[Rfam]
RNA: TPP riboswitch aptamer (THI element)
Organism: Mycobacterium botniense
RNA sequence: AAGUCCACGCGCGGGAGCGCACGCCCAGUGCGCUGAGAGGACGGCUGGGGCCGUCGACCGUAUGAACCUGACCGGGUAAUGCCGUCGUAGGGAGAUGUCCAUGACCGAUCU
Numbered sequence: 001a002a003g004u005c006c007a008c009g010c011g012c013g014g015g016a017g018c019g020c021a022c023g024c025c026c027a028g029u030g031c032g033c034u035g036a037g038a039g040g041a042c043g044g045c046u047g048g049g050g051c052c053g054u055c056g057a058c059c060g061u062a063u064g065a066a067c068c069u070g071a072c073c074g075g076g077u078a079a080u081g082c083c084g085u086c087g088u089a090g091g092g093a094g095a096u097g098u099c100c101a102u103g104a105c106c107g108a109u110c111u
Stems, first nucleotide, its partner, number of pairs: 007098003011061004017033005040055005067091004073084003